[Rfam]
RNA sequence: GUCUGUCACACACGGAGAUCGGCAGGAGUGGGGGACCCAAGAGAGACGGGUCGCCGAAACGGCACGCCAUGGCCGGGACGAGCAGCCCUUGGGGUGAAGCCGCAACGCACUACGCGGCCGGGCUAUUCGCUAGCCCGAACCCGACAGGUCAUCCUUCACAGGCGGCUAAGCGAAGGUGC
Numbered sequence: 001g002u003c004u005g006u007c008a009c010a011c012a013c014g015g016a017g018a019u020c021g022g023c024a025g026g027a028g029u030g031g032g033g034g035a036c037c038c039a040a041g042a043g044a045g046a047c048g049g050g051u052c053g054c055c056g057a058a059a060c061g062g063c064a065c066g067c068c069a070u071g072g073c074c075g076g077g078a079c080g081a082g083c084a085g086c087c088c089u090u091g092g093g094g095u096g097a098a099g100c101c102g103c104a105a106c107g108c109a110c111u112a113c114g115c116g117g118c119c120g121g122g123c124u125a126u127u128c129g130c131u132a133g134c135c136c137g138a139a140c141c142c143g144a145c146a147g148g149u150c151a152u153c154c155u156u157c158a159c160a161g162g163c164g165g166c167u168a169a170g171c172g173a174a175g176g177u178g179c
Stems, first nucleotide, its partner, number of pairs: 002027003028159006038091004092142003100117004120136004
RNA: c-di-AMP riboswitch aptamer (ydaO/yuaA leader)
Organism: Streptomyces actuosus